[Rfam]
RNA sequence: AUGCUCUGGUUUCUCUUCAUAACAAAUAAAUAUUUUGUCUUUUACUAAAGAUUUCUGUGGAGACGAACAAUUGUGAGUUAUAACUGAAUUUUUUGAUAUCUUGCUUAGGCAGGGCU
Numbered sequence: 001a002u003g004c005u006c007u008g009g010u011u012u013c014u015c016u017u018c019a020u021a022a023c024a025a026a027u028a029a030a031u032a033u034u035u036u037g038u039c040u041u042u043u044a045c046u047a048a049a050g051a052u053u054u055c056u057g058u059g060g061a062g063a064c065g066a067a068c069a070a071u072u073g074u075g076a077g078u079u080a081u082a083a084c085u086g087a088a089u090u091u092u093u094u095g096a097u098a099u100c101u102u103g104c105u106u107a108g109g110c111a112g113g114g115c116u
Stems, first nucleotide, its partner, number of pairs: 003078004009068004014063006028054004033049003096116001099114005